[Rfam]
RNA sequence: ACACGUUGAGCCCACCAGGGCUGCACACAAACCAACCAAGCAACGGGGGUUGGGU
Numbered sequence: 001a002c003a004c005g006u007u008g009a010g011c012c013c014a015c016c017a018g019g020g021c022u023g024c025a026c027a028c029a030a031a032c033c034a035a036c037c038a039a040g041c042a043a044c045g046g047g048g049g050u051u052g053g054g055u
Base pairs, nucleotide, nucleotide: 004045005044006043007042008041010021011020012019013018030055032053033052034051035050036048037047
This 55-nucleotide sequence belongs to the Rfam family "Glutamine-II riboswitch aptamer".
Its family is annotated with glutamine binding in the Gene Ontology.
It is one of the family's seed sequences.
A reference for the family is Huang et al. (2019), "Structure and ligand binding of the glutamine-II riboswitch", Nucleic Acids Res.